Vibrio RNA AS9: a 104-nucleotide sequence from Pseudoalteromonas piratica. About the family: Identified by direct cloning an parallel sequencing experiments with 5S/tRNA depletion. Confirmed by Northern blot. Lineage of the source: Bacteria > Pseudomonadati > Gammaproteobacteria > Pseudoalteromonadaceae > Pseudoalteromonas. The base pairs follow the family's consensus structure, which was predicted with RNAfold. By type it is an antisense RNA. On this family, see Liu et al., Nucleic Acids Res 2009: "Experimental discovery of sRNAs in Vibrio cholerae by direct cloning, 5S/tRNA depletion and parallel sequencing".
RNA sequence: CUGCUGACAACGCUCUUGUGUUAGUGUUAAACAAAUCAAACCGCGACCAUGCGUCGCCAUAAAAUUAAUUGCAUCUGCACUGAUAUGCUCAGAUGCCAUAAUUA
Numbered sequence: 001c002u003g004c005u006g007a008c009a010a011c012g013c014u015c016u017u018g019u020g021u022u023a024g025u026g027u028u029a030a031a032c033a034a035a036u037c038a039a040a041c042c043g044c045g046a047c048c049a050u051g052c053g054u055c056g057c058c059a060u061a062a063a064a065u066u067a068a069u070u071g072c073a074u075c076u077g078c079a080c081u082g083a084u085a086u087g088c089u090c091a092g093a094u095g096c097c098a099u100a101a102u103u104a
Stems, first nucleotide, its partner, number of pairs: 003058001005056004009028006035050002041045001066104005071096002074093004078087002